[Rfam]
RNA sequence: AGCCUUGCACAAGGGCAGUUCUAGACGCUAUGAAGGUUAGCCUGAGCGCUAGAUAUUGCUGGUUGAAAACUUCAUCCAAUAGACGCGUAAGGACCCGAUAGGGACUUUACGCAAUUUUUGGAGGCCAUUGG
Numbered sequence: 001a002g003c004c005u006u007g008c009a010c011a012a013g014g015g016c017a018g019u020u021c022u023a024g025a026c027g028c029u030a031u032g033a034a035g036g037u038u039a040g041c042c043u044g045a046g047c048g049c050u051a052g053a054u055a056u057u058g059c060u061g062g063u064u065g066a067a068a069a070c071u072u073c074a075u076c077c078a079a080u081a082g083a084c085g086c087g088u089a090a091g092g093a094c095c096c097g098a099u100a101g102g103g104a105c106u107u108u109a110c111g112c113a114a115u116u117u118u119u120g121g122a123g124g125c126c127a128u129u130g131g
Base pairs, nucleotide, nucleotide: 020053021052022051023050024049026048027047028046034043035042036041085112086111087110088109089108090107091106092105094103095102096101
Rfam assigns this 131-nucleotide RNA from Rhodamnia argentea to the family "U4 spliceosomal RNA". Rfam classes the family as a spliceosomal small nuclear RNA. The match comes from Rfam's covariance-model search (97 bits). The organism belongs to Rhodamnia, within Eukaryota. Rfam's curators write: U4 small nuclear RNA (U4 snRNA) is a component of the major U2-dependent spliceosome. The base pairs follow the family's consensus structure, which is taken from published work. The family is grouped with related families in Rfam's "U4 clan".